A member of the RNA family "MIR398 microRNA precursor family" from Populus alba, 111 nucleotides long.
Gene Ontology terms of the family: RISC complex and miRNA-mediated post-transcriptional gene silencing.
Pairs were carried over by alignment from the consensus structure, which was predicted with WAR.

RNA sequence: GUAGACCCCAGAGGAGUGGCUCCUGAGAGCACAGGGGGGUUGGUUUUCUAGCUGCAAGCUACAAGAUGGACAAAGCACCCUGUGUUCUCAGGUCACCCCUUUGGGGCACCC
Numbered sequence: 001g002u003a004g005a006c007c008c009c010a011g012a013g014g015a016g017u018g019g020c021u022c023c024u025g026a027g028a029g030c031a032c033a034g035g036g037g038g039g040u041u042g043g044u045u046u047u048c049u050a051g052c053u054g055c056a057a058g059c060u061a062c063a064a065g066a067u068g069g070a071c072a073a074a075g076c077a078c079c080c081u082g083u084g085u086u087c088u089c090a091g092g093u094c095a096c097c098c099c100u101u102u103g104g105g106g107c108a109c110c111c
Stems, first nucleotide, its partner, number of pairs: 007105002011101004016096004025089010